The record is a 264-nucleotide RNA from Alkalibaculum bacchi, which matches "Bacterial large signal recognition particle RNA" in Rfam. The source organism's lineage runs through Bacteria, Bacillati, Bacillota, Eubacteriales and Alkalibaculum. The signal recognition particle (SRP) is a universally conserved ribonucleoprotein involved in the co-translational targeting of proteins to membranes. It is annotated as a non-coding RNA gene. Clan: SRP clan. Pairs were carried over by alignment from the consensus structure, which is taken from published work. On this family, see Rosenblad et al., Nucleic Acids Res 2003: "SRPDB: Signal Recognition Particle Database".
RNA sequence: UCGUGCUAGACGGGGAGUUAGCGGUGCCCUGUACCUGCAAUCCGCUAUAGCAGGGUUGAAUUCCUGACCGAGGGUAUAAUCUUUGGGGUCUGACCUUGGCAAGUGGUGUUGAGAAUCGGGCCCUGUGCAAUAGACGCUUGUGAACCCCGUCAGGUCCGGAAGGAAGCAGCGGUAAGCAAGCUAAUCUAUGUGCCUCAGGUCUACCUGAUUUGAGCCAACUACCAAGGUAACGCUCGAAGAUUAUAUUCGACGAAAGGUGCACGA
Numbered sequence: 001u002c003g004u005g006c007u008a009g010a011c012g013g014g015g016a017g018u019u020a021g022c023g024g025u026g027c028c029c030u031g032u033a034c035c036u037g038c039a040a041u042c043c044g045c046u047a048u049a050g051c052a053g054g055g056u057u058g059a060a061u062u063c064c065u066g067a068c069c070g071a072g073g074g075u076a077u078a079a080u081c082u083u084u085g086g087g088g089u090c091u092g093a094c095c096u097u098g099g100c101a102a103g104u105g106g107u108g109u110u111g112a113g114a115a116u117c118g119g120g121c122c123c124u125g126u127g128c129a130a131u132a133g134a135c136g137c138u139u140g141u142g143a144a145c146c147c148c149g150u151c152a153g154g155u156c157c158g159g160a161a162g163g164a165a166g167c168a169g170c171g172g173u174a175a176g177c178a179a180g181c182u183a184a185u186c187u188a189u190g191u192g193c194c195u196c197a198g199g200u201c202u203a204c205c206u207g208a209u210u211u212g213a214g215c216c217a218a219c220u221a222c223c224a225a226g227g228u229a230a231c232g233c234u235c236g237a238a239g240a241u242u243a244u245a246u247u248c249g250a251c252g253a254a255a256g257g258u259g260c261a262c263g264a
Stems, first nucleotide, its partner, number of pairs: 001264006009057003012030004017025003034054005063257003068252001072248005078242010091229002095226005103219002105216003113211008122199004127194001128190002131188004136181006147172004155164003
Dot-bracket structure: ((((((..(((((((.(((...))).))))...(((((...........)))))))).....(((..(...(((((.((((((((((...((..(((((...(((((.....((((((((.((((.(((.((((.((((((.....((((....(((....)))....))))...))))))...))))))...).))))....))))))))..))).))..))))).))...)))))))))).)))))...)..))).))))))